A member of the RNA family "small nucleolar RNA snoR22" from Plasmodium relictum, 79 nucleotides long. The family has 3 seed sequences and 34 matches in Rfam 15.1.
[Rfam]
RNA sequence: UUUUUAUGAUGAUUAAAAAAAAAAUGUAAGUAGGGACAUGAGAAAAUUAAAUAUGUUCUUUUUUUUUUUUCUGAAAAAA
Number, nucleotide and partner (000 for none) at each position: 001u079002u078003u077004u076005u000006a000007u000008g000009a000010u000011g000012a000013u000014u000015a000016a000017a000018a000019a000020a000021a000022a000023a000024a000025u000026g000027u000028a000029a000030g000031u000032a000033g000034g000035g000036a000037c000038a000039u000040g000041a000042g000043a000044a000045a000046a000047u000048u000049a000050a000051a000052u000053a000054u000055g000056u000057u000058c000059u000060u000061u000062u000063u000064u000065u000066u000067u000068u000069u000070u000071c000072u000073g000074a000075a000076a004077a003078a002079a001

Rfam links the family to the GO terms nucleolus and RNA processing. The source organism's lineage runs through Eukaryota, Sar, Alveolata, Plasmodiidae and Haemamoeba.